[Rfam]
RNA: Guanidine-II riboswitch aptamer (mini-ykkC)
RNA sequence: UCCGGGGGAGGACCCCCGGACCCCCCUCAAUCCCUGGGGGGCGACCCCC
Dot-bracket structure: ((((((((....))))))))...............(((((....)))))